Annotation: The record is a 74-nucleotide sequence from Atractosteus spatula, which matches "tRNA" in Rfam. Pairs were carried over by alignment from the consensus structure, which is taken from published work. Transfer RNA (tRNA) molecules are approximately 80 nucleotides in length. It is annotated as a transfer RNA. NCBI's taxonomy places the organism under Eukaryota, Vertebrata, Actinopterygii, Semionotiformes, Atractosteus.

RNA sequence: GGUGCUGUGGCUCAGUUGGUUAAAGUGUCUGCCUAGUAAACAGGAGAUCCUGGGUUCAAAUCCCAGCGGUGCCU
Numbered sequence: 001g002g003u004g005c006u007g008u009g010g011c012u013c014a015g016u017u018g019g020u021u022a023a024a025g026u027g028u029c030u031g032c033c034u035a036g037u038a039a040a041c042a043g044g045a046g047a048u049c050c051u052g053g054g055u056u057c058a059a060a061u062c063c064c065a066g067c068g069g070u071g072c073c074u
Stems, first nucleotide, its partner, number of pairs: 001073007010026003028044004050066005